[Rfam]
RNA sequence: CGGAGACGACCUCGAAGUCGGAGUGGGAGGUUCAGGUCUGAGCGUAGCCGUCAUUGGGGUUCUUGAUCAGCAAUGACUUGGCCCUGGUGUCUGGUGGCGUUUUGGCUGCUCUUCUCUCGCUCUUUCACACGACGAACCACUCGUGCUGGACCGAGACCUGGGUGAAGUUGGUGGCGAGUUUCGACUUGCUGCCAGCCCCGGGUGUUUGGCUUCGGCGCGGGCGGGUAGUUAAGGAGGCUCGUAUAGCGAGUGUCUUUGCUGACACGGCCUUCAUAUCUGUCGUGAGUAGGUCGGCGGCGUCUCCGACCCGUCUUGAAACACGG
Number, nucleotide and partner (000 for none) at each position: 001c305002g304003g303004a302005g301006a300007c299008g298009a000010c296011c294012u293013c000014g000015a000016a000017g124018u000019c000020g123021g122022a121023g120024u119025g118026g117027g116028a115029g114030g113031u000032u000033c000034a000035g000036g000037u000038c000039u000040g000041a000042g000043c000044g000045u000046a000047g000048c000049c000050g000051u000052c000053a000054u000055u000056g000057g000058g000059g000060u000061u000062c000063u000064u000065g000066a000067u000068c000069a000070g000071c000072a000073a000074u000075g000076a000077c000078u000079u000080g000081g000082c000083c000084c000085u000086g000087g000088u000089g000090u000091c000092u000093g000094g000095u000096g000097g000098c000099g000100u000101u000102u000103u000104g000105g000106c000107u000108g000109c000110u000111c000112u000113u030114c029115u028116c027117u026118c025119g024120c023121u022122c021123u020124u017125u000126c000127a000128c284129a283130c282131g281132a280133c279134g278135a000136a000137c000138c000139a000140c000141u000142c000143g000144u000145g000146c000147u000148g000149g000150a000151c000152c000153g000154a000155g000156a000157c000158c000159u000160g000161g000162g000163u000164g000165a000166a000167g000168u000169u000170g000171g000172u000173g000174g000175c000176g000177a000178g000179u000180u000181u000182c000183g000184a000185c000186u000187u000188g000189c000190u000191g000192c000193c000194a000195g000196c000197c000198c000199c000200g000201g000202g000203u000204g000205u000206u000207u000208g000209g000210c000211u000212u000213c000214g000215g000216c000217g000218c000219g000220g000221g000222c000223g000224g000225g000226u000227a000228g000229u000230u000231a000232a000233g000234g000235a000236g000237g000238c000239u000240c000241g000242u000243a000244u000245a000246g000247c000248g000249a000250g000251u000252g000253u000254c000255u000256u000257u000258g000259c000260u000261g000262a000263c000264a000265c000266g000267g000268c000269c000270u000271u000272c000273a000274u000275a000276u000277c000278u134279g133280u132281c131282g130283u129284g128285a000286g000287u000288a000289g000290g000291u000292c000293g012294g011295c000296g010297g000298c008299g007300u006301c005302u004303c003304c002305g001306a000307c000308c323309c322310g321311u320312c000313u000314u000315g000316a000317a000318a000319c000320a311321c310322g309323g308

Shown here is a 323-nucleotide part of an RNA from Tigriopus californicus, a member of the family "Eukaryotic large subunit ribosomal RNA".